[Rfam]
RNA sequence: CUCCCAAAUCUUCUGUUGAAAUGUAAUCACCACCUCCAGCAAACAGGGAUUACAUUUCAACAUGAGAUUUGGAUAAGGA
Numbered sequence: 001c002u003c004c005c006a007a008a009u010c011u012u013c014u015g016u017u018g019a020a021a022u023g024u025a026a027u028c029a030c031c032a033c034c035u036c037c038a039g040c041a042a043a044c045a046g047g048g049a050u051u052a053c054a055u056u057u058c059a060a061c062a063u064g065a066g067a068u069u070u071g072g073a074u075a076a077g078g079a
Base pairs, nucleotide, nucleotide: 001077002076004072005071006070007069008068009067010066011065012064014062015061016060017059018058019057020056021055022054023053024052025051026050027049028048030046
Dot-bracket structure: ((.(((((((((.(((((((((((((((.(...............).))))))))))))))).)))))))))...))..